The record is a 93-nucleotide RNA from Streptomyces sp. PT12, which matches "ZMP/ZTP riboswitch aptamer (pfl RNA motif)" in Rfam. The organism belongs to Streptomyces, within Bacteria. Its family is annotated with one-carbon metabolic process and regulation of purine nucleotide biosynthetic process in the Gene Ontology. Pairs were carried over by alignment from the consensus structure, which is taken from published work. A search with the family's covariance model found it, with a score of 51 bits.
RNA sequence: GCACCGGGCCGUGACUGGCGCGUUUCGGAUGGAGUCCACCAUCGGGGAGCGGUCCUGCUCUGCGACGUGGUGCCGUGCGCCUGGGCCCUCGCG
Number, nucleotide and partner (000 for none) at each position: 001g000002c000003a000004c057005c000006g055007g054008g053009c052010c051011g050012u049013g000014a000015c046016u045017g081018g080019c079020g078021c077022g000023u000024u000025u000026c000027g000028g000029a042030u041031g040032g039033a000034g000035u000036c000037c000038a000039c032040c031041a030042u029043c000044g000045g016046g015047g000048a000049g012050c011051g010052g009053u008054c007055c006056u000057g004058c000059u000060c000061u000062g000063c000064g000065a000066c000067g000068u000069g000070g088071u000072g086073c085074c084075g000076u000077g021078c020079g019080c018081c017082u000083g000084g074085g073086c072087c000088c070089u000090c000091g000092c000093g000